[Rfam]
RNA sequence: AAAGCAGGUCGAGUGGCUGCCGUGCGUAAAAUACACGGAGGAAAGUCCGAACUCCAUAAGGCAGGACGGUUGUUAAAAACAACCGAGAGUAAUCUCAGGGAAAGUGCCACAGAAAAUUACCGCCUAAUUCUAAGACGAAUAAGUCUGUGAGCUAGGUAAGGUUGAAAAAGCGAGGUAAGAGCUCACUGGCUAUAAUGGAGACAUUACAGCAAGGUAAACCCCGUCCGGAGAAAGGUCAAAUAGUUUACGCCUAUCAGGCAGCCUGUCUGAUUCAUCUUCUAUAAGAUGAAGGCGUAAGGGUAUAGACCGCUAAAAAUUAAGAGCAAUCUUGAUUUCAGAUGAAUGGCCACAUAAACAGAAUUCGGCUUAUGACCUGCUUUUUUU
Dot-bracket structure: (((((((((((.((((((.(((((.((...)).)))))....[[[.[[[[[((((.....[..((((((((((.....)))))(((((....)))).)((...(((((...........(((((((.(((..................))).)))))..)).......((.(((.......))).)).(((.(((((....))))).)))..)))..)))))))))))))...((((......((((((.........................((.((..]..)).))...))))))......))))......((((((((....))))))))..........))))))..........]]]]]]]].)))))))))))....
Numbered sequence: 001a002a003a004g005c006a007g008g009u010c011g012a013g014u015g016g017c018u019g020c021c022g023u024g025c026g027u028a029a030a031a032u033a034c035a036c037g038g039a040g041g042a043a044a045g046u047c048c049g050a051a052c053u054c055c056a057u058a059a060g061g062c063a064g065g066a067c068g069g070u071u072g073u074u075a076a077a078a079a080c081a082a083c084c085g086a087g088a089g090u091a092a093u094c095u096c097a098g099g100g101a102a103a104g105u106g107c108c109a110c111a112g113a114a115a116a117u118u119a120c121c122g123c124c125u126a127a128u129u130c131u132a133a134g135a136c137g138a139a140u141a142a143g144u145c146u147g148u149g150a151g152c153u154a155g156g157u158a159a160g161g162u163u164g165a166a167a168a169a170g171c172g173a174g175g176u177a178a179g180a181g182c183u184c185a186c187u188g189g190c191u192a193u194a195a196u197g198g199a200g201a202c203a204u205u206a207c208a209g210c211a212a213g214g215u216a217a218a219c220c221c222c223g224u225c226c227g228g229a230g231a232a233a234g235g236u237c238a239a240a241u242a243g244u245u246u247a248c249g250c251c252u253a254u255c256a257g258g259c260a261g262c263c264u265g266u267c268u269g270a271u272u273c274a275u276c277u278u279c280u281a282u283a284a285g286a287u288g289a290a291g292g293c294g295u296a297a298g299g300g301u302a303u304a305g306a307c308c309g310c311u312a313a314a315a316a317u318u319a320a321g322a323g324c325a326a327u328c329u330u331g332a333u334u335u336c337a338g339a340u341g342a343a344u345g346g347c348c349a350c351a352u353a354a355a356c357a358g359a360a361u362u363c364g365g366c367u368u369a370u371g372a373c374c375u376g377c378u379u380u381u382u383u384u
Stems, first nucleotide, its partner, number of pairs: 001380011013350006020038005026032002043368003047365005052230004061282001064226005069083005084098001085096004099221002104219002106215003120161002122157005128151003169187002172184003189210003193206005234308004244298006275289002278286002315334008